[Rfam]
RNA sequence: UGACGGGGGCCCGCACAAGCGGCGGAGCAUGCGGAUUAAUUCGAUGCAACGCGAAGAACCUUACCUGGGUUUGACAUGCCGGGAAAUCCUCCAGAGAUGGGGGGUGCCUUCGGGCGUCCGGUGCAGGUGGUGCAUGGCUGUCGUCAGCUCGUGUCGUGAGAUGUUGGGUUAAGUCCCGCAACGAGCGCAACCCUUGUCCUAUGUUGCCAGCACGUAAUGGUGGGGACUCAUGGGAGACUGCCGGGGUCAACUCGGAGGAAGGUGGGGACGACGUCAAGUCAUCAUGCCCCUUAUGUCCAGGGCUUCACGCAUGCUACAAUGGCCGGUACAGAGGGCUGCGAUACCGUGAGGUGGAGCGAAUCUCUUAAAGCCGGUCUCAGUUCGGAUCGGGGUCUGCAACUCGACCCCGUGAAGUCGGAGUCGCUAGUAAUCGCAGAUCAGCAACGCUGCGGUGAAUACGUUCCCGGGCCUUGUACACACCGCCCGUCACGUCAUGAAAGUCGGCAACACCCGAAGCCGGUGGCCUAACCCCUUGUGGGGGGGAGCCGUCGAAGGUGGGGCUGGCGAUUGGGACGAAGUCGUAACAAGG
Numbered sequence: 001u002g003a004c005g006g007g008g009g010c011c012c013g014c015a016c017a018a019g020c021g022g023c024g025g026a027g028c029a030u031g032c033g034g035a036u037u038a039a040u041u042c043g044a045u046g047c048a049a050c051g052c053g054a055a056g057a058a059c060c061u062u063a064c065c066u067g068g069g070u071u072u073g074a075c076a077u078g079c080c081g082g083g084a085a086a087u088c089c090u091c092c093a094g095a096g097a098u099g100g101g102g103g104g105u106g107c108c109u110u111c112g113g114g115c116g117u118c119c120g121g122u123g124c125a126g127g128u129g130g131u132g133c134a135u136g137g138c139u140g141u142c143g144u145c146a147g148c149u150c151g152u153g154u155c156g157u158g159a160g161a162u163g164u165u166g167g168g169u170u171a172a173g174u175c176c177c178g179c180a181a182c183g184a185g186c187g188c189a190a191c192c193c194u195u196g197u198c199c200u201a202u203g204u205u206g207c208c209a210g211c212a213c214g215u216a217a218u219g220g221u222g223g224g225g226a227c228u229c230a231u232g233g234g235a236g237a238c239u240g241c242c243g244g245g246g247u248c249a250a251c252u253c254g255g256a257g258g259a260a261g262g263u264g265g266g267g268a269c270g271a272c273g274u275c276a277a278g279u280c281a282u283c284a285u286g287c288c289c290c291u292u293a294u295g296u297c298c299a300g301g302g303c304u305u306c307a308c309g310c311a312u313g314c315u316a317c318a319a320u321g322g323c324c325g326g327u328a329c330a331g332a333g334g335g336c337u338g339c340g341a342u343a344c345c346g347u348g349a350g351g352u353g354g355a356g357c358g359a360a361u362c363u364c365u366u367a368a369a370g371c372c373g374g375u376c377u378c379a380g381u382u383c384g385g386a387u388c389g390g391g392g393u394c395u396g397c398a399a400c401u402c403g404a405c406c407c408c409g410u411g412a413a414g415u416c417g418g419a420g421u422c423g424c425u426a427g428u429a430a431u432c433g434c435a436g437a438u439c440a441g442c443a444a445c446g447c448u449g450c451g452g453u454g455a456a457u458a459c460g461u462u463c464c465c466g467g468g469c470c471u472u473g474u475a476c477a478c479a480c481c482g483c484c485c486g487u488c489a490c491g492u493c494a495u496g497a498a499a500g501u502c503g504g505c506a507a508c509a510c511c512c513g514a515a516g517c518c519g520g521u522g523g524c525c526u527a528a529c530c531c532c533u534u535g536u537g538g539g540g541g542g543g544a545g546c547c548g549u550c551g552a553a554g555g556u557g558g559g560g561c562u563g564g565c566g567a568u569u570g571g572g573a574c575g576a577a578g579u580c581g582u583a584a585c586a587a588g589g
Base pairs, nucleotide, nucleotide: 001477002476003474004473005472007471008470009469010468011467012466013465015461016460019424020423021422022421023420024317026315027314028313029312030311031310032309033308034306035305040055041054042053043052064301065300066299067298068297069296070295077123078122079121080120081119082118083117087104088103089102090101091100092099093098105116106115107114108113126290127289129288130287131286132285135284136283137279138278139277140275142273143272147186148185149184150183151182152181153162154161155160165178166177167176168175192267193266194265195264197235198234199233200232201231202230203229207224208223211222212221213220238258239257241255242254243253244252245251321376322375323374324373325372326371327370333364334363335362338357339356343352344351345350383414388409389408390407391406392405393404394403430453431452432451433450434449435448436447480588482585485581486580490575491574492573493572495570496569497568500565501564502563503562504561505560508557509556510555511554516550518548519547520546521545524543525542526541529539530538